[Rfam]
Nucleotides: 120
Base pairs, nucleotide, nucleotide: 005116006115007114008113009112010111017029018028019027031100032099033090034089035049036048037047038046044088045087053065054064070086071085072084073083074082092103093102094101
Number, partner (000 for none) and nucleotide at each position: 001000u002000a003000a004000c005116g006115u007114c008113u009112u010111u011000g012000g013000g014000g015000c016000a017029g018028g019027g020000u021000g022000u023000a024000a025000u026000u027019c028018c029017c030000u031100a032099c033090c034089g035049a036048u037047g038046g039000u040000g041000a042000u043000a044088g045087u046038c047037c048036a049035u050000g051000a052000c053065u054064c055000g056000c057000u058000g059000a060000u061000a062000g063000c064054g065053a066000c067000u068000g069000a070086u071085c072084u073083g074082g075000u076000g077000a078000a079000a080000u081000u082074c083073c084072a085071g086070a087045a088044c089034c090033g091000a092103c093102g094101g095000u096000a097000u098000a099032g100031u101094c102093c103092g104000g105000a106000u107000g108000a109000g110000a111010a112009a113008a114007g115006a116005c117000a118000a119000a120000u